[Rfam]
RNA: Singlet oxygen resistance RNA X
Organism: Shimia sp. SK013
RNA sequence: ACCCCGCCAUGUCCGGGUUAUGACAUGACCUCCCUGUUGGACUGACCCGGGCCUCGGCUCGGGUCUUUUU
Numbered sequence: 001a002c003c004c005c006g007c008c009a010u011g012u013c014c015g016g017g018u019u020a021u022g023a024c025a026u027g028a029c030c031u032c033c034c035u036g037u038u039g040g041a042c043u044g045a046c047c048c049g050g051g052c053c054u055c056g057g058c059u060c061g062g063g064u065c066u067u068u069u070u
Stems, first nucleotide, its partner, number of pairs: 008027006045064008